Rfam assigns this 64-nucleotide RNA from Medicago truncatula to the family "MIR2629 microRNA precursor family".
Gene Ontology terms of the family: RISC complex and miRNA-mediated post-transcriptional gene silencing.
The family's consensus secondary structure was predicted with RNAalifold.

[Rfam]
RNA sequence: UGUCAAAGUUUCCGCGGCAGUUAACUGCAGAAGUUUCCUCGACAGUUAACUGCCGAAGGGGUAU
Numbered sequence: 001u002g003u004c005a006a007a008g009u010u011u012c013c014g015c016g017g018c019a020g021u022u023a024a025c026u027g028c029a030g031a032a033g034u035u036u037c038c039u040c041g042a043c044a045g046u047u048a049a050c051u052g053c054c055g056a057a058g059g060g061g062u063a064u
Base pairs, nucleotide, nucleotide: 011060012059015055016054017053018052019051020050021049022048023047024046025045026044027043